[Rfam]
A member of the RNA family "mir-548 microRNA precursor family" from Macaca mulatta, 84 nucleotides long.
Nucleotides: 084
Base pairs, nucleotide, nucleotide: 001084002083003082004081005080006079007078008077009076010075011074012073013072014071015070016069017068018067019066020065021064022063023062024061025060026059027058028057029056030055031054032053033052034051035050036049037048038047039046040045
Number, partner (000 for none) and nucleotide at each position: 001084u002083a003082u004081u005080a006079g007078g008077u009076u010075g011074g012073u013072g014071c015070a016069a017068a018067c019066a020065u021064a022063a023062u024061u025060g026059u027058g028057g029056u030055u031054u032053u033052u034051g035050c036049c037048a038047u039046u040045g041000g042000a043000a044000g045040u046039a047038a048037u049036g050035g051034c052033a053032a054031g055030a056029a057028c058027c059026g060025c061024a062023a063022u064021u065020a066019u067018g068017u069016u070015u071014g072013c073012a074011c075010c076009a077008a078007c079006c080005u081004a082003a083002u084001a
Lineage of the source: Eukaryota > Sarcopterygii > Simiiformes > Cercopithecoidea > Macaca. Its family is annotated with miRNA-mediated post-transcriptional gene silencing and RISC complex in the Gene Ontology. Rfam 15.1 lists 3,009 matches to the family in 27 species. On this family, see Witten et al., BMC Biol 2010: "Ultra-high throughput sequencing-based small RNA discovery and discrete statistical biomarker analysis in a collection of cervical tumours and matched controls".